[Rfam]
RNA sequence: UAGGGAAGUCAGGGUUCAGCCCCCCCUCCCUGAACCCAGGAUAACCCUGUAAGUAGAGGGGAA
Numbered sequence: 001u002a003g004g005g006a007a008g009u010c011a012g013g014g015u016u017c018a019g020c021c022c023c024c025c026c027u028c029c030c031u032g033a034a035c036c037c038a039g040g041a042u043a044a045c046c047c048u049g050u051a052a053g054u055a056g057a058g059g060g061g062a063a
Stems, first nucleotide, its partner, number of pairs: 008042003012037004017032003023061006
Record summary: A member of the RNA family "Gag/pol translational readthrough site" from Neotoma lepida, 63 nucleotides long. Rfam 15.1 lists 3,368 matches to the family in 94 species. Gene Ontology term of the family: viral translational readthrough. Taxonomically the source falls in Neotoma (Eukaryota, Vertebrata, Gnathostomata, Muroidea). The match comes from Rfam's covariance-model search (68 bits). The family's RNA type in Rfam is cis-regulatory element.